A member of the RNA family "Small nucleolar RNA snoR14" from Macleaya cordata, 95 nucleotides long. On this family, see Brown et al., RNA 2001: "Multiple snoRNA gene clusters from Arabidopsis". Rfam links the family to the GO terms RNA processing and nucleolus. By type it is a C/D-box small nucleolar RNA. Clan: SNORD110 clan.
Nucleotides: 095
Base pairs, nucleotide, nucleotide: 001095002094003093004092
Number, partner (000 for none) and nucleotide at each position: 001095g002094c003093g004092a005000g006000a007000u008000g009000a010000c011000g012000a013000u014000a015000a016000a017000a018000u019000u020000c021000a022000u023000g024000g025000u026000c027000u028000g029000u030000c031000a032000a033000u034000c035000c036000a037000c038000u039000g040000a041000a042000a043000u044000c045000a046000a047000a048000u049000u050000a051000u052000u053000u054000u055000g056000a057000u058000u059000c060000u061000g062000a063000u064000g065000u066000u067000a068000c069000u070000c071000u072000u073000g074000a075000a076000u077000c078000u079000c080000g081000a082000c083000a084000g085000g086000u087000u088000c089000u090000g091000a092004u093003c094002g095001c